[Rfam]
RNA sequence: CGACCCCGGGCGGGAGAGACCUGCCGACCACCGGCAGGCGCCGAAGGAGCAAGACUCCCCGCAAACUCUCAGGCCCCGUGACCGCUCGGGAGAG
Numbered sequence: 001c002g003a004c005c006c007c008g009g010g011c012g013g014g015a016g017a018g019a020c021c022u023g024c025c026g027a028c029c030a031c032c033g034g035c036a037g038g039c040g041c042c043g044a045a046g047g048a049g050c051a052a053g054a055c056u057c058c059c060c061g062c063a064a065a066c067u068c069u070c071a072g073g074c075c076c077c078g079u080g081a082c083c084g085c086u087c088g089g090g091a092g093a094g
Stems, first nucleotide, its partner, number of pairs: 006089008020038004040074003043070002047068003053062001
RNA: Glycine riboswitch aptamer